[Rfam]
RNA sequence: AUACUACCAAAUCCUAUCUCCAUCUCCACGUGGUGAUCGCUGGGAGUUUUUUCUUUAUGAAAAACUACAGACAGAGAAGG
Numbered sequence: 001a002u003a004c005u006a007c008c009a010a011a012u013c014c015u016a017u018c019u020c021c022a023u024c025u026c027c028a029c030g031u032g033g034u035g036a037u038c039g040c041u042g043g044g045a046g047u048u049u050u051u052u053c054u055u056u057a058u059g060a061a062a063a064a065c066u067a068c069a070g071a072c073a074g075a076g077a078a079g080g
Stems, first nucleotide, its partner, number of pairs: 013080003017076001019074001022034003045066007053059001